[Rfam]
RNA sequence: CUCCCCGAAACGUGUCUAAGCACGGCCCUGCAUGGUCAGUGAUGGGGGUAGAGCACUGGUUGAGCUAGGGGGGCAACCUCCGACCUCAGCCAAACUCCGAAUACCAUCACUCAAAGUGCAGGAGACAGACUACGGGCGAUAAGGUCCGUGGUCGAAAGGGAAACAGCCCAGACCACCAGCUAAGGGCCCGAAGAGGUGGCUAAGUGUUAAAGGAAGUGAAGAGUCGAAGACAGCUGGGAUGUUGGCUUAGAAGCAGCCAUCAUUUAAAGAGUGCGUAACAGCUCACCAGUUGAGGCUCUUCGCGCCGAAGAUGUAAGGGGGCUGAAGCCACCCUCCGAAGCUGUGGGACAGCAGCGAAAGGCUGUUGUCGGUAGGGGAGCAUUGCGCGGUAGGGCGAAGGCAGACCCGCGAGGGCUGCUGGACGAAGCGCAAGAGAGAAU
Numbered sequence: 001c002u003c004c005c006c007g008a009a010a011c012g013u014g015u016c017u018a019a020g021c022a023c024g025g026c027c028c029u030g031c032a033u034g035g036u037c038a039g040u041g042a043u044g045g046g047g048g049u050a051g052a053g054c055a056c057u058g059g060u061u062g063a064g065c066u067a068g069g070g071g072g073g074c075a076a077c078c079u080c081c082g083a084c085c086u087c088a089g090c091c092a093a094a095c096u097c098c099g100a101a102u103a104c105c106a107u108c109a110c111u112c113a114a115a116g117u118g119c120a121g122g123a124g125a126c127a128g129a130c131u132a133c134g135g136g137c138g139a140u141a142a143g144g145u146c147c148g149u150g151g152u153c154g155a156a157a158g159g160g161a162a163a164c165a166g167c168c169c170a171g172a173c174c175a176c177c178a179g180c181u182a183a184g185g186g187c188c189c190g191a192a193g194a195g196g197u198g199g200c201u202a203a204g205u206g207u208u209a210a211a212g213g214a215a216g217u218g219a220a221g222a223g224u225c226g227a228a229g230a231c232a233g234c235u236g237g238g239a240u241g242u243u244g245g246c247u248u249a250g251a252a253g254c255a256g257c258c259a260u261c262a263u264u265u266a267a268a269g270a271g272u273g274c275g276u277a278a279c280a281g282c283u284c285a286c287c288a289g290u291u292g293a294g295g296c297u298c299u300u301c302g303c304g305c306c307g308a309a310g311a312u313g314u315a316a317g318g319g320g321g322c323u324g325a326a327g328c329c330a331c332c333c334u335c336c337g338a339a340g341c342u343g344u345g346g347g348a349c350a351g352c353a354g355c356g357a358a359a360g361g362c363u364g365u366u367g368u369c370g371g372u373a374g375g376g377g378a379g380c381a382u383u384g385c386g387c388g389g390u391a392g393g394g395c396g397a398a399g400g401c402a403g404a405c406c407c408g409c410g411a412g413g414g415c416u417g418c419u420g421g422a423c424g425a426a427g428c429g430c431a432a433g434a435g436a437g438a439a440u
Stems, first nucleotide, its partner, number of pairs: 001379006011024005026124001027122007036115001038111008051098001052096002057092003061088004068081005128153010158169003173346004178342003184336003193333001195332006212306002216303010233290005239263003244258003264268001269284001273282002347369008380435001382432006390425001392423001399419005405414003
RNA: Bacterial large subunit ribosomal RNA, nucleotides 883 to 1322
Organism: Kosmotoga olearia